[Rfam]
RNA: pemK RNA
Organism: Lachnospiraceae bacterium MD329
RNA sequence: AUAAUGAUACUUCUGUUAAGUCGAACCUGAGCGUUAAAAGCGUCGCACGUCAGAUAACAGUCCGGAUGUAUGUCGGGAAGGUGUGAUUCCUAUGG
Numbered sequence: 001a002u003a004a005u006g007a008u009a010c011u012u013c014u015g016u017u018a019a020g021u022c023g024a025a026c027c028u029g030a031g032c033g034u035u036a037a038a039a040g041c042g043u044c045g046c047a048c049g050u051c052a053g054a055u056a057a058c059a060g061u062c063c064g065g066a067u068g069u070a071u072g073u074c075g076g077g078a079a080g081g082u083g084u085g086a087u088u089c090c091u092a093u094g095g
Stems, first nucleotide, its partner, number of pairs: 012092001013060006061078003065074003079091003